Notes: BsrF: a 118-nucleotide RNA from Thalassobacillus cyri.

[Rfam]
RNA sequence: GCUAUGAGCUAACUUGUGUAAGACGAAUGGAUAUGCUUUUAUAAGCUCAACGACGAAUGUGGUCGUCGGUCCUUCGCCACAAAGCAUAGAAAGCCUUCCCUGAAACACGGGAAGGCUU
Numbered sequence: 001g002c003u004a005u006g007a008g009c010u011a012a013c014u015u016g017u018g019u020a021a022g023a024c025g026a027a028u029g030g031a032u033a034u035g036c037u038u039u040u041a042u043a044a045g046c047u048c049a050a051c052g053a054c055g056a057a058u059g060u061g062g063u064c065g066u067c068g069g070u071c072c073u074u075c076g077c078c079a080c081a082a083a084g085c086a087u088a089g090a091a092a093g094c095c096u097u098c099c100c101u102g103a104a105a106c107a108c109g110g111g112a113a114g115g116c117u118u
Stems, first nucleotide, its partner, number of pairs: 014082005024076004029072004035046002051068005091118009
A search with the family's covariance model found it, with a score of 77 bits. Taxonomically the source falls in Thalassobacillus (Bacteria, Bacillati, Caryophanales, Bacillaceae). A reference for the family is Saito et al. (2008), "Novel small RNA-encoding genes in the intergenic regions of Bacillus subtilis", Gene.